[Rfam]
RNA sequence: AUACUUACCUGGACAGGAUCGAUGGGUGUUCAAGAAGACCCAUGGUCUAGAUUAGUGGUCCACAUUGCACUUGGUGGAUGCGCUGAUCUACCAUCUCCCCAACUGGGAGAGUGGAUGUCAUAAUUUGUGAUUGAGGGGGUACGCGUCCGCGCGGCCCCUG
Numbered sequence: 001a002u003a004c005u006u007a008c009c010u011g012g013a014c015a016g017g018a019u020c021g022a023u024g025g026g027u028g029u030u031c032a033a034g035a036a037g038a039c040c041c042a043u044g045g046u047c048u049a050g051a052u053u054a055g056u057g058g059u060c061c062a063c064a065u066u067g068c069a070c071u072u073g074g075u076g077g078a079u080g081c082g083c084u085g086a087u088c089u090a091c092c093a094u095c096u097c098c099c100c101a102a103c104u105g106g107g108a109g110a111g112u113g114g115a116u117g118u119c120a121u122a123a124u125u126u127g128u129g130a131u132u133g134a135g136g137g138g139g140u141a142c143g144c145g146u147c148c149g150c151g152c153g154g155c156c157c158c159u160g
Stems, first nucleotide, its partner, number of pairs: 012119004016048006023042005049089003053086001055083003061077001062075002091114003094110003098106002135159005142153004
The record is a 160-nucleotide RNA from Zea mays, which matches "U1 spliceosomal RNA" in Rfam. On this family, see Oubridge et al., Nature 1994: "Crystal structure at 1.92 A resolution of the RNA-binding domain of the U1A spliceosomal protein complexed with an RNA hairpin". U1 is a small nuclear RNA (snRNA) component of the spliceosome (involved in pre-mRNA splicing). The family's RNA type in Rfam is spliceosomal small nuclear RNA. The source organism's lineage runs through Eukaryota, Streptophytina, Euphyllophyta, Tripsacinae and Zea.